Rfam assigns this 523-nucleotide part of an RNA from Apis florea to the family "Eukaryotic large subunit ribosomal RNA". Lineage of the source: Eukaryota > Panarthropoda > Apocrita > Anthophila > Apis. Clan: LSU clan. A reference for the family is Yusupov et al. (2001), "Crystal structure of the ribosome at 5.5 A resolution", Science.
RNA sequence: GGUAGUAGCAAAUACUCCAGCGAGGCCCUGGAGGACUGACGUGGAGAAGGGUUUCGUGUGAACAGCCGUUGCACACGAGUCAGUCGAUCCUAAGCCCUAAGAGAAAUCCUAUGUAAAUGAGGUGUCCUAAGAUCAUACACACAGAAACAUAUAUAAAAAUUGAAAUAUGAGACCAGAAACACACCCAUUGGGCGAAAGGGAAUCCGGUUCCUAUUCCGGAACCCGGCAGCGGAACCGCAUACCAUUCGGGCCCUCGUAAGAGUGUUCGUCGGGGUAACCCAAAAUGACCUGGAGACGCCGUCGGGAGAUCCGGGAAGAGUUUUCUUUUCUGUAUAAGCGUUCGAGUUCCCUGGAAACCUCUAGCAGGGAGAUAGGGUUUGGAACGCGAAGAGCACCGCAGUUGCGGCGGUGUCCGGAUCUUCCCCUCGGACCUUGAAAAUCCAGGAGAGGGCCACGUGGAGGUGUCGCGCCGGUUCGUACCCAUAUCCGCAGCAGGUCUCCAAGGUAAAGAGCCUCUAGUCGA
Numbered sequence: 001g002g003u004a005g006u007a008g009c010a011a012a013u014a015c016u017c018c019a020g021c022g023a024g025g026c027c028c029u030g031g032a033g034g035a036c037u038g039a040c041g042u043g044g045a046g047a048a049g050g051g052u053u054u055c056g057u058g059u060g061a062a063c064a065g066c067c068g069u070u071g072c073a074c075a076c077g078a079g080u081c082a083g084u085c086g087a088u089c090c091u092a093a094g095c096c097c098u099a100a101g102a103g104a105a106a107u108c109c110u111a112u113g114u115a116a117a118u119g120a121g122g123u124g125u126c127c128u129a130a131g132a133u134c135a136u137a138c139a140c141a142c143a144g145a146a147a148c149a150u151a152u153a154u155a156a157a158a159a160u161u162g163a164a165a166u167a168u169g170a171g172a173c174c175a176g177a178a179a180c181a182c183a184c185c186c187a188u189u190g191g192g193c194g195a196a197a198g199g200g201a202a203u204c205c206g207g208u209u210c211c212u213a214u215u216c217c218g219g220a221a222c223c224c225g226g227c228a229g230c231g232g233a234a235c236c237g238c239a240u241a242c243c244a245u246u247c248g249g250g251c252c253c254u255c256g257u258a259a260g261a262g263u264g265u266u267c268g269u270c271g272g273g274g275u276a277a278c279c280c281a282a283a284a285u286g287a288c289c290u291g292g293a294g295a296c297g298c299c300g301u302c303g304g305g306a307g308a309u310c311c312g313g314g315a316a317g318a319g320u321u322u323u324c325u326u327u328u329c330u331g332u333a334u335a336a337g338c339g340u341u342c343g344a345g346u347u348c349c350c351u352g353g354a355a356a357c358c359u360c361u362a363g364c365a366g367g368g369a370g371a372u373a374g375g376g377u378u379u380g381g382a383a384c385g386c387g388a389a390g391a392g393c394a395c396c397g398c399a400g401u402u403g404c405g406g407c408g409g410u411g412u413c414c415g416g417a418u419c420u421u422c423c424c425c426u427c428g429g430a431c432c433u434u435g436a437a438a439a440u441c442c443a444g445g446a447g448a449g450g451g452c453c454a455c456g457u458g459g460a461g462g463u464g465u466c467g468c469g470c471c472g473g474u475u476c477g478u479a480c481c482c483a484u485a486u487c488c489g490c491a492g493c494a495g496g497u498c499u500c501c502a503a504g505g506u507a508a509a510g511a512g513c514c515u516c517u518a519g520u521c522g523a
Stems, first nucleotide, its partner, number of pairs: 015033006034521004043501004049481002054078006063071002085477003089199002094193002096113001098111001100110002103108001121185005203220005223473004260468001262466001264463002271280003288445006298429003303424005310416003314332001316330003337386005348376005357367003393411006487496002503515004